[Rfam]
RNA: mir-9193 microRNA precursor family
RNA sequence: CUUGGAUGUGGGGGGGCCCUCAGCCCGGAUUGUGAGAGGGGGCAGGCCAGGCUGAGGGACCCCAUCAGUGCAUG
Numbered sequence: 001c002u003u004g005g006a007u008g009u010g011g012g013g014g015g016g017c018c019c020u021c022a023g024c025c026c027g028g029a030u031u032g033u034g035a036g037a038g039g040g041g042g043c044a045g046g047c048c049a050g051g052c053u054g055a056g057g058g059a060c061c062c063c064a065u066c067a068g069u070g071c072a073u074g
Stems, first nucleotide, its partner, number of pairs: 003072002006069001010065001012063004017058009027048002030045004